[Rfam]
RNA sequence: GGGCUGAUGAUGAUUGAUCGUAAAGAUCUAGCGGAUUUCUGUGAGGCUACUAGCCGUUGAUCGCAGUAAAUUGUUGUUACACACACUGAAGCCU
Numbered sequence: 001g002g003g004c005u006g007a008u009g010a011u012g013a014u015u016g017a018u019c020g021u022a023a024a025g026a027u028c029u030a031g032c033g034g035a036u037u038u039c040u041g042u043g044a045g046g047c048u049a050c051u052a053g054c055c056g057u058u059g060a061u062c063g064c065a066g067u068a069a070a071u072u073g074u075u076g077u078u079a080c081a082c083a084c085a086c087u088g089a090a091g092c093c094u
Base pairs, nucleotide, nucleotide: 001094002093003092004091005090

Shown here is a 94-nucleotide RNA sequence from Dendrobium catenatum, a member of the family "Small nucleolar RNA R11/Z151". On this family, see Barneche et al., J Mol Biol 2001: "Identification of 66 box C/D snoRNAs in Arabidopsis thaliana: extensive gene duplications generated multiple isoforms predicting new ribosomal RNA 2'-O-methylation sites". It scores 67 bits against the family's covariance model. Lineage of the source: Eukaryota > Euphyllophyta > Asparagales > Dendrobiinae > Dendrobium. The family's consensus secondary structure was predicted with PFOLD. Rfam 15.1 lists 802 matches to the family in 218 species. The family's RNA type in Rfam is C/D-box small nucleolar RNA.